Rfam assigns this 52-nucleotide RNA sequence from Pannonibacter phragmitetus to the family "ffh sRNA".
A reference for the family is Meyer et al. (2009), "Identification of candidate structured RNAs in the marine organism 'Candidatus Pelagibacter ubique'", BMC Genomics.
It is annotated as a small RNA.
RNA sequence: GCGCCCGGAGGUCAACACCCGGCAGCGCGAUGCGCCCCCGGGUGUCAAACUG
Numbered sequence: 001g002c003g004c005c006c007g008g009a010g011g012u013c014a015a016c017a018c019c020c021g022g023c024a025g026c027g028c029g030a031u032g033c034g035c036c037c038c039c040g041g042g043u044g045u046c047a048a049a050c051u052g
Stems, first nucleotide, its partner, number of pairs: 016044007025035004